[Rfam]
RNA sequence: UUUUGUAUCUGCGAUGGGGUUCGCAUUAACCGCUUAAAAAUAAGCUGAUGACUCCUAACCUAUU
Numbered sequence: 001u002u003u004u005g006u007a008u009c010u011g012c013g014a015u016g017g018g019g020u021u022c023g024c025a026u027u028a029a030c031c032g033c034u035u036a037a038a039a040a041u042a043a044g045c046u047g048a049u050g051a052c053u054c055c056u057a058a059c060c061u062a063u064u
Base pairs, nucleotide, nucleotide: 010025011024012023013022016055017054018053019052020051021050032045033044034043035042
RNA: Fluoride riboswitch aptamer (crcB RNA motif)